[Rfam]
RNA sequence: CAAGGACAACGGUUGGGGCACAAACCCGGCAAUGCCCCGUCCGUCGGAGGGCUCCAGCGCAAGCUGGAGCCCUUUUUCUUUG
Dot-bracket structure: .........(((.(((((................))))).)))....((((((((.((....)).)))))))).........
This 82-nucleotide sequence from Bradyrhizobiaceae bacterium SG-6C belongs to the Rfam family "Bradyrhizobiaceae sRNA BjrC68". It is annotated as a small RNA. The organism belongs to Nitrobacteraceae, within Bacteria.